[Rfam]
RNA sequence: CCGUGCUAGAUGGGGAGGUAGCGGUUCCCUGUAACCCGCAGUCCGCUGCAGCGGGAUCGAAUUCCUUUGUGAGGGCCUAAUUGUCGGAGCAGUCUGUGCAUCUGAAGUGAUGACAUUCUGGUCUUGCGCAACGGAAUGCUUUGAACCGUGUCAGGUCCUGACGGAAGCAGCACUAAGGAGAUUUUUCCGUGUGCCGCAAGGUUGCCGGAAGGGAACUUCGGUUUACAGGUAACGUCCGGUGGUUAUGGUUCGGGCAAAGGUGCACGG
Numbered sequence: 001c002c003g004u005g006c007u008a009g010a011u012g013g014g015g016a017g018g019u020a021g022c023g024g025u026u027c028c029c030u031g032u033a034a035c036c037c038g039c040a041g042u043c044c045g046c047u048g049c050a051g052c053g054g055g056a057u058c059g060a061a062u063u064c065c066u067u068u069g070u071g072a073g074g075g076c077c078u079a080a081u082u083g084u085c086g087g088a089g090c091a092g093u094c095u096g097u098g099c100a101u102c103u104g105a106a107g108u109g110a111u112g113a114c115a116u117u118c119u120g121g122u123c124u125u126g127c128g129c130a131a132c133g134g135a136a137u138g139c140u141u142u143g144a145a146c147c148g149u150g151u152c153a154g155g156u157c158c159u160g161a162c163g164g165a166a167g168c169a170g171c172a173c174u175a176a177g178g179a180g181a182u183u184u185u186u187c188c189g190u191g192u193g194c195c196g197c198a199a200g201g202u203u204g205c206c207g208g209a210a211g212g213g214a215a216c217u218u219c220g221g222u223u224u225a226c227a228g229g230u231a232a233c234g235u236c237c238g239g240u241g242g243u244u245a246u247g248g249u250u251c252g253g254g255c256a257a258a259g260g261u262g263c264a265c266g267g
Stems, first nucleotide, its partner, number of pairs: 001267006009058003012030006019023001035055005064260007073251005079244010092230002095227004100222001103220002106217003114212001116210007123200006129191002132189005139180004148173004156165003